MIR480 microRNA precursor family: a 142-nucleotide sequence from Populus alba.
Rfam 15.1 lists 3,070 matches to the family in 171 species.
It scores 126 bits against the family's covariance model.
On this family, see Lu et al., Plant Cell 2005: "Novel and mechanical stress-responsive MicroRNAs in Populus trichocarpa that are absent from Arabidopsis".
Lineage of the source: Eukaryota > Streptophyta > Tracheophyta > Pentapetalae > Populus.
[Rfam]
RNA sequence: UCAUCUAUUUGUGGCAAAUCCUCAUUUAGUUAUGACAAACUCAUAUUUAACUGCUUAGAAUCACUCAUUAUCAUAAGUCUGACUACAUCAUUGAUAUUGAAAAACAGAGAAUAACUACUGUGUGAAUAAUAAUUUUUUGAUA
Numbered sequence: 001u002c003a004u005c006u007a008u009u010u011g012u013g014g015c016a017a018a019u020c021c022u023c024a025u026u027u028a029g030u031u032a033u034g035a036c037a038a039a040c041u042c043a044u045a046u047u048u049a050a051c052u053g054c055u056u057a058g059a060a061u062c063a064c065u066c067a068u069u070a071u072c073a074u075a076a077g078u079c080u081g082a083c084u085a086c087a088u089c090a091u092u093g094a095u096a097u098u099g100a101a102a103a104a105c106a107g108a109g110a111a112u113a114a115c116u117a118c119u120g121u122g123u124g125a126a127u128a129a130u131a132a133u134u135u136u137u138u139g140a141u142a
Base pairs, nucleotide, nucleotide: 004140005139007137012132014130019125023122024121025120027117028116029115030114031113